The family of this 59-nucleotide RNA is "msiK RNA". By type it is a cis-regulatory element.
RNA sequence: CAGUAACUCUUCAUCCAACGGAUCGUCGGGCACGUACCUGCCCGGAGAAGGAGUAAGUA
Numbered sequence: 001c002a003g004u005a006a007c008u009c010u011u012c013a014u015c016c017a018a019c020g021g022a023u024c025g026u027c028g029g030g031c032a033c034g035u036a037c038c039u040g041c042c043c044g045g046a047g048a049a050g051g052a053g054u055a056a057g058u059a
Stems, first nucleotide, its partner, number of pairs: 009051003014046002027044006